[Rfam]
RNA: PreQ1 (pre queuosine) riboswitch aptamer
RNA sequence: AAAUAUGUGGUUCGUAACCAUCCCACAGAAAAAAACUAGGAGGAA
Numbered sequence: 001a002a003a004u005a006u007g008u009g010g011u012u013c014g015u016a017a018c019c020a021u022c023c024c025a026c027a028g029a030a031a032a033a034a035a036c037u038a039g040g041a042g043g044a045a
Base pairs, nucleotide, nucleotide: 006027007026008025009024010023015038016037